Nucleotides: 085
Base pairs, nucleotide, nucleotide: 001085002084003083004082005081006080008078009077010076011075012074013073016070017069018068019067020066021065022064023063024062027059028058029057
Number, partner (000 for none) and nucleotide at each position: 001085a002084u003083g004082u005081g006080c007000c008078u009077g010076g011075c012074u013073u014000c015000c016070u017069g018068u019067a020066u021065g022064c023063c024062a025000u026000c027059c028058g029057c030000a031000g032000a033000a034000c035000c036000u037000a038000u039000c040000a041000a042000a043000c044000a045000a046000c047000g048000a049000u050000g051000g052000c053000a054000u055000c056000u057029g058028u059027g060000a061000a062024u063023g064022g065021c066020g067019u068018a069017u070016g071000a072000u073013g074012a075011g076010u077009c078008a079000a080006g081005c082004a083003u084002a085001u